The family of this 116-nucleotide sequence from Motiliproteus coralliicola is "SAM-I/IV (S-adenosyl methionine) riboswitch aptamer". Its family is annotated with S-adenosylmethionine metabolic process and regulation of gene expression in the Gene Ontology. The literature on the family includes a 2014 paper in PNAS by Trausch et al., "Structural basis for diversity in the SAM clan of riboswitches". The family is grouped with related families in Rfam's "SAM clan".

RNA sequence: ACCCAACAUCAAGAGAAGGGCUGACGUCCUCGCCAACCUGCCAACCUGGGCAAGGUGGUUACCGACUCCGAUAAGAGUCGGCGAUGUGGUCGAAACCGACAACCAAACAGGUGUCC
Numbered sequence: 001a002c003c004c005a006a007c008a009u010c011a012a013g014a015g016a017a018g019g020g021c022u023g024a025c026g027u028c029c030u031c032g033c034c035a036a037c038c039u040g041c042c043a044a045c046c047u048g049g050g051c052a053a054g055g056u057g058g059u060u061a062c063c064g065a066c067u068c069c070g071a072u073a074a075g076a077g078u079c080g081g082c083g084a085u086g087u088g089g090u091c092g093a094a095a096c097c098g099a100c101a102a103c104c105a106a107a108c109a110g111g112u113g114u115c116c
Base pairs, nucleotide, nucleotide: 006087007086008085009084010083015031017030018029019028020027021026032059033058034057037055038054039053040051041050042049044112045111046110047109048108089100090099091098092097